The record is an 84-nucleotide RNA sequence from Pelagibacterales bacterium SAG-MED46, which matches "rhtB sRNA" in Rfam.
[Rfam]
RNA sequence: UAUGAUAAUUUAUAUUCAGAUAGUCCUUCUUAGCCAUCUUUAGCUCCCGGUUUAAUAAGGACUAUCCAGACCAAAAUGCUCCCC
Numbered sequence: 001u002a003u004g005a006u007a008a009u010u011u012a013u014a015u016u017c018a019g020a021u022a023g024u025c026c027u028u029c030u031u032a033g034c035c036a037u038c039u040u041u042a043g044c045u046c047c048c049g050g051u052u053u054a055a056u057a058a059g060g061a062c063u064a065u066c067c068a069g070a071c072c073a074a075a076a077u078g079c080u081c082c083c084c
Stems, first nucleotide, its partner, number of pairs: 019066009032052004
Rfam classes the family as a small RNA. On this family, see Meyer et al., BMC Genomics 2009: "Identification of candidate structured RNAs in the marine organism 'Candidatus Pelagibacter ubique'".